[Rfam]
RNA: mir-31 microRNA precursor family
Organism: Patiria miniata
Nucleotides: 078
Stems, first nucleotide, its partner, number of pairs: 001073003005069003009065005015059003020054008
Number, partner (000 for none) and nucleotide at each position: 001073g002072u003071g004000g005069a006068g007067a008000a009065g010064g011063c012062a013061a014000g015059a016058u017057g018000u019000u020054g021053g022052c023051a024050u025049a026048g027047c028000u029000g030000u031000u032000u033000g034000a035000u036000u037000c038000a039000a040000a041000u042000u043000c044000u045000c046000a047027g048026c049025u050024g051023u052022g053021c054020u055000c056000a057017c058016a059015u060000a061013u062012u063011g064010c065009c066000a067007u068006u069005u070000a071003u072002g073001c074000a075000c076000u077000u078000g